[Rfam]
The record is a 74-nucleotide RNA from Centaurea solstitialis, which matches "Small nucleolar RNA Z102/R77" in Rfam. The family's consensus secondary structure was predicted with PFOLD.
RNA sequence: UGAAAAUGAGGAUGAAAAUUUGCUGUUUGACUGUCGAUAUGAUGGCAACAAUGUAUUAGCUCUAUCUGAUUUCU
Numbered sequence: 001u002g003a004a005a006a007u008g009a010g011g012a013u014g015a016a017a018a019u020u021u022g023c024u025g026u027u028u029g030a031c032u033g034u035c036g037a038u039a040u041g042a043u044g045g046c047a048a049c050a051a052u053g054u055a056u057u058a059g060c061u062c063u064a065u066c067u068g069a070u071u072u073c074u
Stems, first nucleotide, its partner, number of pairs: 002073002029049001032047004
By type it is a C/D-box small nucleolar RNA. On this family, see Chen et al., Nucleic Acids Res 2003: "The high diversity of snoRNAs in plants: identification and comparative study of 120 snoRNA genes from Oryza sativa". The source organism's lineage runs through Eukaryota, Streptophyta, Gunneridae, Centaureinae and Centaurea. A search with the family's covariance model found it, with a score of 48 bits.